[Rfam]
Shown here is a 97-nucleotide sequence from Oryza brachyantha, a member of the family "Small nucleolar RNA Z118/Z121/Z120". NCBI's taxonomy places the organism under Eukaryota, Streptophytina, Tracheophyta, Oryzinae, Oryza. The family's consensus secondary structure was predicted with PFOLD. It scores 77 bits against the family's covariance model. Its family is annotated with RNA processing and nucleolus in the Gene Ontology. The literature on the family includes a 2003 paper in Nucleic Acids Res by Chen et al., "The high diversity of snoRNAs in plants: identification and comparative study of 120 snoRNA genes from Oryza sativa". Rfam classes the family as a C/D-box small nucleolar RNA.
RNA sequence: UGUUUGCUAUGAUGACCUCUACAAGGACGGUAUCUGAGCGAUGGAUUCAUCCUUGCAUGAUUAUACCUACUCUGAGACAAAAUGUCUGAGCAAAACA
Numbered sequence: 001u002g003u004u005u006g007c008u009a010u011g012a013u014g015a016c017c018u019c020u021a022c023a024a025g026g027a028c029g030g031u032a033u034c035u036g037a038g039c040g041a042u043g044g045a046u047u048c049a050u051c052c053u054u055g056c057a058u059g060a061u062u063a064u065a066c067c068u069a070c071u072c073u074g075a076g077a078c079a080a081a082a083u084g085u086c087u088g089a090g091c092a093a094a095a096c097a
Base pairs, nucleotide, nucleotide: 001097002096003095004093005092006091007090038056039055040054041053043051